[Rfam]
RNA: L31-Firmicutes ribosomal protein leader
RNA sequence: CUAUGUCUUAAAUAAUUAGACAUGGCGGAAGGAG
Numbered sequence: 001c002u003a004u005g006u007c008u009u010a011a012a013u014a015a016u017u018a019g020a021c022a023u024g025g026c027g028g029a030a031g032g033a034g
Base pairs, nucleotide, nucleotide: 001025002024003023004022005021006020007019008018